[Rfam]
RNA: trpB ncRNA motif
Organism: Periweissella fabalis
RNA sequence: GGCAUAGACACAAUUUUUAGGAACUUUCUAAAAAGUGUCUAUGCCGGUGAUUAUCUCAAACGUUUAAAACCGGUUAGCAGUAUGCUACCGGUUUUUUUAUUGC
Numbered sequence: 001g002g003c004a005u006a007g008a009c010a011c012a013a014u015u016u017u018u019a020g021g022a023a024c025u026u027u028c029u030a031a032a033a034a035g036u037g038u039c040u041a042u043g044c045c046g047g048u049g050a051u052u053a054u055c056u057c058a059a060a061c062g063u064u065u066a067a068a069a070c071c072g073g074u075u076a077g078c079a080g081u082a083u084g085c086u087a088c089c090g091g092u093u094u095u096u097u098u099a100u101u102g103c
Stems, first nucleotide, its partner, number of pairs: 001045011015033006069092005075087005